[Rfam]
RNA sequence: UAGCCGGUGAGAGUCCGGUCGAGGUAAGAGCCAAGUCGCCUCGUAGCUGAAGGGCAACUGGUGGAGAGAACCUAAGGUUGAAGCCCCGUGACAAAGUAACCCCGAGAGGGGAGCGAGCAAAACAACAGGCCGUAACAUCA
Numbered sequence: 001u002a003g004c005c006g007g008u009g010a011g012a013g014u015c016c017g018g019u020c021g022a023g024g025u026a027a028g029a030g031c032c033a034a035g036u037c038g039c040c041u042c043g044u045a046g047c048u049g050a051a052g053g054g055c056a057a058c059u060g061g062u063g064g065a066g067a068g069a070a071c072c073u074a075a076g077g078u079u080g081a082a083g084c085c086c087c088g089u090g091a092c093a094a095a096g097u098a099a100c101c102c103c104g105a106g107a108g109g110g111g112a113g114c115g116a117g118c119a120a121a122a123c124a125a126c127a128g129g130c131c132g133u134a135a136c137a138u139c140a
Base pairs, nucleotide, nucleotide: 020043021042022041023040024039050089052087053086054085055080056079057078058077059076064071096114097113101111102110103109117133118132

The family of this 140-nucleotide RNA sequence from Paenibacillus prosopidis is "Group II catalytic intron D1-D4-4". The family has 90 seed sequences and 840 matches in Rfam 15.1. Taxonomically the source falls in Paenibacillus (Bacteria, Bacillati, Bacilli, Caryophanales). Pairs were carried over by alignment from the consensus structure. Rfam describes the family as follows. Group II introns are found in rRNA, tRNA and mRNA of organelles in fungi, plants and protists, and also in mRNA in bacteria. Its family is annotated with Group II intron splicing in the Gene Ontology. The match comes from Rfam's covariance-model search (97 bits).